[Rfam]
Rfam assigns this 170-nucleotide sequence from Nocardia brasiliensis to the family "M-box riboswitch aptamer (ykoK leader)". Rfam 15.1 lists 1,095 matches to the family in 932 species. It scores 148 bits against the family's covariance model. Its family is annotated with response to magnesium ion and regulation of gene expression in the Gene Ontology.
RNA sequence: UCAGCACCUCGUUAAGCGAGGCUCCUGCGCGAACACAGGCCACUGAUCCGACGACGUCGAGAGACGCCCAGGAUCAGGACAGAUCGCUUCGGACUAAGGGGCGAUCCCAGGUGGCUUCCCGGAUCGGGAUACGUCGCGCAGUGCCGAAGCUCUGACGAGAGGGGUGCCCC
Numbered sequence: 001u002c003a004g005c006a007c008c009u010c011g012u013u014a015a016g017c018g019a020g021g022c023u024c025c026u027g028c029g030c031g032a033a034c035a036c037a038g039g040c041c042a043c044u045g046a047u048c049c050g051a052c053g054a055c056g057u058c059g060a061g062a063g064a065c066g067c068c069c070a071g072g073a074u075c076a077g078g079a080c081a082g083a084u085c086g087c088u089u090c091g092g093a094c095u096a097a098g099g100g101g102c103g104a105u106c107c108c109a110g111g112u113g114g115c116u117u118c119c120c121g122g123a124u125c126g127g128g129a130u131a132c133g134u135c136g137c138g139c140a141g142u143g144c145c146g147a148a149g150c151u152c153u154g155a156c157g158a159g160a161g162g163g164g165u166g167c168c169c170c
Base pairs, nucleotide, nucleotide: 005166006165007164008163009162010161011156012155013097015151016150017149020145021144022143025141026140027139028138029137030136031135032134039115040114041113042112043111045075046074047073048072049071055066056065057064058063082106083105084104085103088100089099090098117129118128119127